[Rfam]
RNA: mir-548 microRNA precursor family
Organism: Rhinolophus ferrumequinum
RNA sequence: UAUUAGGUUGGUGCAAAAGUAAUUGCGGUUUUAAAGGUUAAAAAUAAUUGCUAAAACCGCAAUUACUUUUGCACCAACCUAAUA
Dot-bracket structure: (((((((((((((((((((((((((((((((((..(((((....)))))..)))))))))))))))))))))))))))))))))
Numbered sequence: 001u002a003u004u005a006g007g008u009u010g011g012u013g014c015a016a017a018a019g020u021a022a023u024u025g026c027g028g029u030u031u032u033a034a035a036g037g038u039u040a041a042a043a044a045u046a047a048u049u050g051c052u053a054a055a056a057c058c059g060c061a062a063u064u065a066c067u068u069u070u071g072c073a074c075c076a077a078c079c080u081a082a083u084a
Stems, first nucleotide, its partner, number of pairs: 001084033036049005